[Rfam]
RNA: Small nucleolar RNA SNORD82
Organism: Bucco capensis
RNA sequence: AGCACAAGUGAUGAUAGUAAGGGACUUAAUACUGAAAGUAUGAUGUCACUUUUGAGCAGAAACUGAUGUGC
Numbered sequence: 001a002g003c004a005c006a007a008g009u010g011a012u013g014a015u016a017g018u019a020a021g022g023g024a025c026u027u028a029a030u031a032c033u034g035a036a037a038g039u040a041u042g043a044u045g046u047c048a049c050u051u052u053u054g055a056g057c058a059g060a061a062a063c064u065g066a067u068g069u070g071c
Base pairs, nucleotide, nucleotide: 002071003070004069005068006067